[Rfam]
Nucleotides: 132
Base pairs, nucleotide, nucleotide: 002059003058004057005056006055007054009052019044020043021042022041023040024039025038026037027036028035070125071124073122074121075120076119082111083110084109085108086107090105091104093102094101
Number, partner (000 for none) and nucleotide at each position: 001000c002059u003058u004057g005056c006055a007054c008000c009052c010000a011000a012000a013000c014000c015000c016000a017000a018000a019044g020043g021042u022041c023040a024039u025038g026037u027036c028035a029000a030000c031000u032000c033000c034000g035028u036027g037026g038025u039024g040023u041022g042021a043020c044019u045000g046000a047000g048000u049000c050000u051000g052009g053000u054007g055006u056005g057004c058003a059002a060000a061000c062000a063000g064000a065000a066000a067000a068000c069000u070125g071124g072000u073122c074121c075120u076119u077000g078000u079000c080000g081000c082111c083110u084109u085108u086107c087000u088000c089000u090105g091104a092000u093102g094101c095000u096000g097000a098000u099000g100000u101094g102093c103000c104091u105090u106000u107086g108085a109084a110083a111082g112000u113000g114000a115000a116000u117000u118000c119076a120075a121074g122073g123000u124071u125070c126000a127000a128000c129000a130000a131000a132000u
This 132-nucleotide sequence from Betta splendens belongs to the Rfam family "Small nucleolar RNA SNORA68". The literature on the family includes a 1997 paper in Genes Dev by Ganot et al., "The family of box ACA small nucleolar RNAs is defined by an evolutionarily conserved secondary structure and ubiquitous sequence elements essential for RNA accumulation". It scores 72 bits against the family's covariance model. About the family: U68 is a member of the H/ACA class of small nucleolar RNAs (snoRNAs) which act as guides in the the modification of uridines to pseudouridines. Lineage of the source: Eukaryota > Bilateria > Percomorphaceae > Macropodinae > Betta.